[Rfam]
RNA sequence: UCCUCGCUCAAAGAAUCGCAUUCGAAGCACACAAACAGAGAAAUUCCUCGGAAUAUCUCAGCUAGUAAUAGCUACUCAUGCUUUGGGAGAAAGUCCCCGGACACCCUUCUUUCAGAAGGAUUGCGGAAACGCGCCGCCACAGAAGCACUGCGGCCUUCUCCUCUACCAAUUCCUCGUCCCUUCCUCCAUCCUUUCACCGUUUGCACCGCCUUCUUAUUGAUCUUUAGGACCAUUGCUCUCAGCUGAGAAGACCCCAUGGACGAAGAUAUGAGUCCGAGCUUCUCGUGCGAUGUCUAUUGGGACUGGGGGAUGUGAGAUUGCGGGAGGUGUCUGGACUGUUCUUGGCGUGGCGGGGAUGUUCUGGUCAGUGGAGGUUUUUUCGUCGAGAUCGAUAGUUAUGCGAUUGCCCUCUCAUGCCAUGCAAGUGGUGCGAGGGGUAACUCGAUGGGGCUUAUUAUUGAUGCGAGG
Numbered sequence: 001u002c003c004u005c006g007c008u009c010a011a012a013g014a015a016u017c018g019c020a021u022u023c024g025a026a027g028c029a030c031a032c033a034a035a036c037a038g039a040g041a042a043a044u045u046c047c048u049c050g051g052a053a054u055a056u057c058u059c060a061g062c063u064a065g066u067a068a069u070a071g072c073u074a075c076u077c078a079u080g081c082u083u084u085g086g087g088a089g090a091a092a093g094u095c096c097c098c099g100g101a102c103a104c105c106c107u108u109c110u111u112u113c114a115g116a117a118g119g120a121u122u123g124c125g126g127a128a129a130c131g132c133g134c135c136g137c138c139a140c141a142g143a144a145g146c147a148c149u150g151c152g153g154c155c156u157u158c159u160c161c162u163c164u165a166c167c168a169a170u171u172c173c174u175c176g177u178c179c180c181u182u183c184c185u186c187c188a189u190c191c192u193u194u195c196a197c198c199g200u201u202u203g204c205a206c207c208g209c210c211u212u213c214u215u216a217u218u219g220a221u222c223u224u225u226a227g228g229a230c231c232a233u234u235g236c237u238c239u240c241a242g243c244u245g246a247g248a249a250g251a252c253c254c255c256a257u258g259g260a261c262g263a264a265g266a267u268a269u270g271a272g273u274c275c276g277a278g279c280u281u282c283u284c285g286u287g288c289g290a291u292g293u294c295u296a297u298u299g300g301g302a303c304u305g306g307g308g309g310a311u312g313u314g315a316g317a318u319u320g321c322g323g324g325a326g327g328u329g330u331c332u333g334g335a336c337u338g339u340u341c342u343u344g345g346c347g348u349g350g351c352g353g354g355g356a357u358g359u360u361c362u363g364g365u366c367a368g369u370g371g372a373g374g375u376u377u378u379u380u381c382g383u384c385g386a387g388a389u390c391g392a393u394a395g396u397u398a399u400g401c402g403a404u405u406g407c408c409c410u411c412u413c414a415u416g417c418c419a420u421g422c423a424a425g426u427g428g429u430g431c432g433a434g435g436g437g438u439a440a441c442u443c444g445a446u447g448g449g450g451c452u453u454a455u456u457a458u459u460g461a462u463g464c465g466a467g468g
Base pairs, nucleotide, nucleotide: 002468003467004466005465006464007463008461009460010459011458014405015404016403017402018401019400022087023085024084025083026082027081028080038059039058040057041056043054044053045052046051091453092452093451095450096449097448098447122133123132124131125130226369228366229365230364231363240358241357243355407437408436409435410434412432

This 468-nucleotide RNA from Lachnellula cervina belongs to the Rfam family "RNase MRP". The match comes from Rfam's covariance-model search (105 bits).